[Rfam]
RNA sequence: CAGUGAAAUAAAUCCUUGCGGAUUUGUGAAAUAUGCUGAAGCAUGUGAAAUAUGGCUUCGCCAUGUGAAAUGCGCU
Numbered sequence: 001c002a003g004u005g006a007a008a009u010a011a012a013u014c015c016u017u018g019c020g021g022a023u024u025u026g027u028g029a030a031a032u033a034u035g036c037u038g039a040a041g042c043a044u045g046u047g048a049a050a051u052a053u054g055g056c057u058u059c060g061c062c063a064u065g066u067g068a069a070a071u072g073c074g075c076u
Stems, first nucleotide, its partner, number of pairs: 008027008031046006050066007